This 258-nucleotide sequence belongs to the Rfam family "Hairpin ribozyme 2 from viruses-like metatranscriptomes". Rfam's curators write: Hairpin-meta ribozymes were recognised in metatranscriptomic sequences of viruses-like organisms, it was proved by co-transcriptional assays that hairpin-meta1 and hairpin-meta2 non-coding RNA (ncRNAs) are catalytically active and it is suggested that they likely replicate as circular single-stranded RNAs. Rfam's curators put it in the seed alignment.

RNA sequence: UAAAUGGAUUAUUGUUGUCCAGGGCUGUCCGUCAUACCGGGAGAUGGCUACCCGAGGGGUCCCAAGACUGCUUCAAUCGGCCGAAAUGCGUAAGACCGACGGCAAGGUACAUCUUUGAGAGUCUUGUCGCACAGGGACGUGCCAAUCCGGAGAAUGGGGUGAAACUCCUCUGAGAUCCGGUGUUGCUUCAUUUGACGGGAAGCCCAAACAAGUUGAAACACACUGGCAGUUGUCGAGUCAGUGGUAUAUUAUACUUGA
Numbered sequence: 001u002a003a004a005u006g007g008a009u010u011a012u013u014g015u016u017g018u019c020c021a022g023g024g025c026u027g028u029c030c031g032u033c034a035u036a037c038c039g040g041g042a043g044a045u046g047g048c049u050a051c052c053c054g055a056g057g058g059g060u061c062c063c064a065a066g067a068c069u070g071c072u073u074c075a076a077u078c079g080g081c082c083g084a085a086a087u088g089c090g091u092a093a094g095a096c097c098g099a100c101g102g103c104a105a106g107g108u109a110c111a112u113c114u115u116u117g118a119g120a121g122u123c124u125u126g127u128c129g130c131a132c133a134g135g136g137a138c139g140u141g142c143c144a145a146u147c148c149g150g151a152g153a154a155u156g157g158g159g160u161g162a163a164a165c166u167c168c169u170c171u172g173a174g175a176u177c178c179g180g181u182g183u184u185g186c187u188u189c190a191u192u193u194g195a196c197g198g199g200a201a202g203c204c205c206a207a208a209c210a211a212g213u214u215g216a217a218a219c220a221c222a223c224u225g226g227c228a229g230u231u232g233u234c235g236a237g238u239c240a241g242u243g244g245u246a247u248a249u250u251a252u253a254c255u256u257g258a
Base pairs, nucleotide, nucleotide: 005021006020007019008018009017022205023204024203025202030197031196032195033194034193036191038054039053040052041051059138060137061136062135063134077099078098079097080096100129101128102127103126104125105124210256211255212254213253221243222242223241224240225239226238227237